[Rfam]
RNA sequence: CCUGUCUGCGGGAAUGGUGUCUCCCGUAAAACCGCGCUGAUGCUGAUGACGCCUGCUUUUCG
Numbered sequence: 001c002c003u004g005u006c007u008g009c010g011g012g013a014a015u016g017g018u019g020u021c022u023c024c025c026g027u028a029a030a031a032c033c034g035c036g037c038u039g040a041u042g043c044u045g046a047u048g049a050c051g052c053c054u055g056c057u058u059u060u061c062g
Stems, first nucleotide, its partner, number of pairs: 010025004016053006034043003